This 59-nucleotide RNA from Monodelphis domestica belongs to the Rfam family "mir-873 microRNA precursor family". Taxonomically the source falls in Monodelphis (Eukaryota, Chordata, Amniota, Mammalia). The family's consensus secondary structure was predicted with RNAalifold. Rfam's curators put it in the seed alignment.
[Rfam]
RNA sequence: UGCAGGAACUUGUGAGUCUCCUAUUGAAAAUGAACGGGAGACUGGUGAGUUCCCGGGAA
Numbered sequence: 001u002g003c004a005g006g007a008a009c010u011u012g013u014g015a016g017u018c019u020c021c022u023a024u025u026g027a028a029a030a031u032g033a034a035c036g037g038g039a040g041a042c043u044g045g046u047g048a049g050u051u052c053c054c055g056g057g058a059a
Base pairs, nucleotide, nucleotide: 001057003055005053006052007051008050009049010048011047012046013045015043016042017041018040019039020038021037022036024034025033